A member of the RNA family "Betaproteobacteria toxic small RNA" from Herbaspirillum sp. meg3, 67 nucleotides long. Overexpression in amino aid rich medium attenuates growth, suggesting role in repressing amino acid intake and metabolism.

RNA sequence: UGUCUCCUCCAACUCCUCCCCGGAUUGGAUUCAGCCCCCGACCUGCAAAGUUCGGGGGCUUUUUUUU
Numbered sequence: 001u002g003u004c005u006c007c008u009c010c011a012a013c014u015c016c017u018c019c020c021c022g023g024a025u026u027g028g029a030u031u032c033a034g035c036c037c038c039c040g041a042c043c044u045g046c047a048a049a050g051u052u053c054g055g056g057g058g059c060u061u062u063u064u065u066u067u
Base pairs, nucleotide, nucleotide: 008029009028010027011026012025013022033060034059035058036057037056038055039054040053